[Rfam]
RNA sequence: CUGUUUCCUGCUUCAACAGAGCUUGAACAGAACCUG
Dot-bracket structure: (.(.(((..(.((((((...).)))))).))).).)

Description: The family of this 36-nucleotide RNA from Mus spicilegus is "Iron response element I". It scores 35 bits against the family's covariance model. The literature on the family includes a 1987 paper in Science by Hentze et al., "Identification of the iron-responsive element for the translational regulation of human ferritin mRNA". Pairs were carried over by alignment from the consensus structure, which is taken from published work.